Bacterial RNase P class A: a 348-nucleotide sequence from Thermodesulfobium narugense. Its family is annotated with dimeric ribonuclease P complex, ribonuclease P activity and tRNA processing in the Gene Ontology. Taxonomically the source falls in Thermodesulfobium narugense (Bacteria, Pseudomonadati, Thermodesulfobiia, Thermodesulfobiaceae). Pairs were carried over by alignment from the consensus structure, which is taken from published work. By type it is a ribozyme.
RNA sequence: CAGGACAGGCGCGCAACUUACAAGCUAACUACUUGAGGAAAGUCCGAGCUCCACUGGGCAGGAUGCUGGUUAAUUGCCAGAGAGGGAAACCUCUGGAUAGGGCCACAGAAAAAAACUACUAUCUUUUGAUAGUACAGGUGAAAAGGCGAGGUAAAAGCUCACCGGCAGAAGAGCGAUCUUCUGGCCAGGCAACCCCCAUCCGGAGCAAGGCCAAAUAGGGAAGGAGACUGCCCAGGUCGCUAUUACUUCCGGGUAGGCCGCAAGAGACUGAGGGAAACUUCAGUCCCAGAUAAAUGGUUGCGAUCCCUUUGUGGGAUACAGAACUCGGCUUAUAGCCUGUCCUGUGUU
Numbered sequence: 001c002a003g004g005a006c007a008g009g010c011g012c013g014c015a016a017c018u019u020a021c022a023a024g025c026u027a028a029c030u031a032c033u034u035g036a037g038g039a040a041a042g043u044c045c046g047a048g049c050u051c052c053a054c055u056g057g058g059c060a061g062g063a064u065g066c067u068g069g070u071u072a073a074u075u076g077c078c079a080g081a082g083a084g085g086g087a088a089a090c091c092u093c094u095g096g097a098u099a100g101g102g103c104c105a106c107a108g109a110a111a112a113a114a115a116c117u118a119c120u121a122u123c124u125u126u127u128g129a130u131a132g133u134a135c136a137g138g139u140g141a142a143a144a145g146g147c148g149a150g151g152u153a154a155a156a157g158c159u160c161a162c163c164g165g166c167a168g169a170a171g172a173g174c175g176a177u178c179u180u181c182u183g184g185c186c187a188g189g190c191a192a193c194c195c196c197c198a199u200c201c202g203g204a205g206c207a208a209g210g211c212c213a214a215a216u217a218g219g220g221a222a223g224g225a226g227a228c229u230g231c232c233c234a235g236g237u238c239g240c241u242a243u244u245a246c247u248u249c250c251g252g253g254u255a256g257g258c259c260g261c262a263a264g265a266g267a268c269u270g271a272g273g274g275a276a277a278c279u280u281c282a283g284u285c286c287c288a289g290a291u292a293a294a295u296g297g298u299u300g301c302g303a304u305c306c307c308u309u310u311g312u313g314g315g316a317u318a319c320a321g322a323a324c325u326c327g328g329c330u331u332a333u334a335g336c337c338u339g340u341c342c343u344g345u346g347u348u
Base pairs, nucleotide, nucleotide: 001344002343003342004341005340006339007338008337009336010335011333012302013301014300015299016298017297018296023033024032040331041330042329044328045327046326047325048324049205050204051203052202057233058232061201062200063199064198065197066080067079068078069077070076081094082093083092084091085090095196096195100194101193102190103189104188116137117136118133119132120131121130122129123128145163146162148160149159150158165185166183167182168181169180170179171178172177209259210258211257212256219250220249221248222247223246229235266285267284268283269282270281271280272279273278